Background: This 114-nucleotide RNA from Grantiella picta belongs to the Rfam family "Small nucleolar RNA SNORD90". Rfam 15.1 lists 545 matches to the family in 524 species. The organism belongs to Grantiella, within Eukaryota. For this family Rfam cites "RNomics: an experimental approach that identifies 201 candidates for novel, small, non-messenger RNAs in mouse" (Huttenhofer et al., EMBO J, 2001). From the family's description: snoRNA HBII-295 belongs to the family of C/D snoRNAs. It is the human orthologue of the mouse MBII-295 and has no identified RNA target. The family's RNA type in Rfam is C/D-box small nucleolar RNA.
RNA sequence: AAUUAACUUUCUGGUGUCUUAUGAUGAAGCUUCAUAGGGCAGAUUCUGAGCUGAGAAAUAAAAUUUCUCUCCAUUGAUUCUCUUUAUAUGCCAUCUGAAGACACCAUAUAUUGC
Numbered sequence: 001a002a003u004u005a006a007c008u009u010u011c012u013g014g015u016g017u018c019u020u021a022u023g024a025u026g027a028a029g030c031u032u033c034a035u036a037g038g039g040c041a042g043a044u045u046c047u048g049a050g051c052u053g054a055g056a057a058a059u060a061a062a063a064u065u066u067c068u069c070u071c072c073a074u075u076g077a078u079u080c081u082c083u084u085u086a087u088a089u090g091c092c093a094u095c096u097g098a099a100g101a102c103a104c105c106a107u108a109u110a111u112u113g114c
Stems, first nucleotide, its partner, number of pairs: 012106008029094001033090003036084004042078001045077002048074001050072001053069005